[Rfam]
RNA sequence: GCAGGCCCUGAUUGUCCAAACGCAAUUCUUGUGUAAAUACGACAACAAGAAAUGUGUGGGGACAUCGUUGCUUGC
Number, nucleotide and partner (000 for none) at each position: 001g000002c074003a073004g072005g071006c070007c000008c000009u067010g066011a065012u064013u000014g063015u062016c061017c060018a000019a000020a000021c056022g055023c054024a053025a000026u051027u050028c049029u048030u047031g046032u000033g000034u000035a000036a000037a000038u000039a000040c000041g000042a000043c000044a000045a000046c031047a030048a029049g028050a027051a026052a000053u024054g023055u022056g021057u000058g000059g000060g017061g016062a015063c014064a012065u011066c010067g009068u000069u000070g006071c005072u004073u003074g002075c000
Background:
The family of this 75-nucleotide RNA sequence from Daphnia magna is "mir-219 microRNA precursor family". Pairs were carried over by alignment from the consensus structure, which was predicted with RNAalifold. A search with the family's covariance model found it, with a score of 62 bits.